[Rfam]
RNA sequence: CCGGGUAAUAACGACCUGUCCAUGAUGGAAGGUCAUAAAUUCUCGCUGAUUUCAGGAGCUUUUUAUUAUGCGUA
Number, nucleotide and partner (000 for none) at each position: 001c000002c000003g000004g000005g000006u000007a000008a000009u000010a000011a000012c000013g034014a033015c032016c031017u030018g000019u029020c028021c027022a000023u000024g000025a000026u000027g021028g020029a019030a017031g016032g015033u014034c013035a000036u000037a000038a064039a063040u000041u000042c058043u057044c056045g000046c055047u054048g053049a000050u000051u000052u000053c048054a047055g046056g044057a043058g042059c000060u000061u000062u000063u039064u038065a000066u000067u000068a000069u000070g000071c000072g000073u000074a000

The record is a 74-nucleotide sequence, which matches "Repression of heat shock gene expression (ROSE) element" in Rfam.
Pairs were carried over by alignment from the consensus structure, which is taken from published work.
This family represents a 5' UTR cis-regulatory element found in heat shock mRNAs and is known as the ROSE (repression of heat shock gene expression) element. The ROSE element is a negative regulator of heat shock gene expression.